[Rfam]
A member of the RNA family "Small nucleolar RNA SNORA68" from Otolemur garnettii, 123 nucleotides long. Rfam classes the family as an H/ACA-box small nucleolar RNA. The base pairs follow the family's consensus structure, which was predicted with PFOLD. Rfam describes the family as follows. U68 is a member of the H/ACA class of small nucleolar RNAs (snoRNAs) which act as guides in the the modification of uridines to pseudouridines. Gene Ontology terms of the family: nucleolus and RNA processing.
RNA sequence: GUAGCACCUAAAUCCCAAACCCAAGAAUUGCUGUUUCUUGUAGCAGUUGUUUAAACAGGGGUGCUAACAGCAAACCCCCUUGGGGAGCUGAGGUCAUGCCCCUCAAAGUGAAUUUGGAGGUCA
Numbered sequence: 001g002u003a004g005c006a007c008c009u010a011a012a013u014c015c016c017a018a019a020c021c022c023a024a025g026a027a028u029u030g031c032u033g034u035u036u037c038u039u040g041u042a043g044c045a046g047u048u049g050u051u052u053a054a055a056c057a058g059g060g061g062u063g064c065u066a067a068c069a070g071c072a073a074a075c076c077c078c079c080u081u082g083g084g085g086a087g088c089u090g091a092g093g094u095c096a097u098g099c100c101c102c103u104c105a106a107a108g109u110g111a112a113u114u115u116g117g118a119g120g121u122c123a
Stems, first nucleotide, its partner, number of pairs: 002066008026051003030047006075120002078108001080106006087099002